[Rfam]
This 224-nucleotide RNA from Firmicutes bacterium AF12-30 belongs to the Rfam family "T-box leader".
Rfam 15.1 lists 19,395 matches to the family in 1,923 species.
The literature on the family includes a 1994 paper in J Bacteriol by Grundy et al., "Interaction between the acceptor end of tRNA and the T box stimulates antitermination in the Bacillus subtilis tyrS gene: a new role for the discriminator base".
About the family: Uncharged tRNA acts as the effector for transcription antitermination of genes in the T-box leader family. T-boxes are found upstream of many aminoacyl-tRNA synthetase genes and some amino acid biosynthetic genes usually in Gram-positive bacteria.
It scores 108 bits against the family's covariance model.
Rfam links the family to the GO term tRNA binding.
Taxonomically the source falls in Bacillota (Bacteria, Bacillati).

RNA sequence: AACAAAACGUUGAUGAGAAGAGUACUUUGUGAAAGGCUUACAGAGAGGGAUACAUAAGCUGUGAGUAUCCUAAGCAGAGAAACAAAGGAAGACCACCUCGGAGUAGCUGUAAACCAGCUCGGUUGACACCGUUAACUGUCGAUUAAGUGAUCUGUUUCUGGAAUUUAUUAUCACAUGGUAUGAAACAGAUAACCAGGGUGGAACCGCGAUAACUCGUCCCAUGG
Numbered sequence: 001a002a003c004a005a006a007a008c009g010u011u012g013a014u015g016a017g018a019a020g021a022g023u024a025c026u027u028u029g030u031g032a033a034a035g036g037c038u039u040a041c042a043g044a045g046a047g048g049g050a051u052a053c054a055u056a057a058g059c060u061g062u063g064a065g066u067a068u069c070c071u072a073a074g075c076a077g078a079g080a081a082a083c084a085a086a087g088g089a090a091g092a093c094c095a096c097c098u099c100g101g102a103g104u105a106g107c108u109g110u111a112a113a114c115c116a117g118c119u120c121g122g123u124u125g126a127c128a129c130c131g132u133u134a135a136c137u138g139u140c141g142a143u144u145a146a147g148u149g150a151u152c153u154g155u156u157u158c159u160g161g162a163a164u165u166u167a168u169u170a171u172c173a174c175a176u177g178g179u180a181u182g183a184a185a186c187a188g189a190u191a192a193c194c195a196g197g198g199u200g201g202a203a204c205c206g207c208g209a210u211a212a213c214u215c216g217u218c219c220c221a222u223g224g
Stems, first nucleotide, its partner, number of pairs: 007104002015099003025087006036075003048070006106118004120131003150190009196220003206217004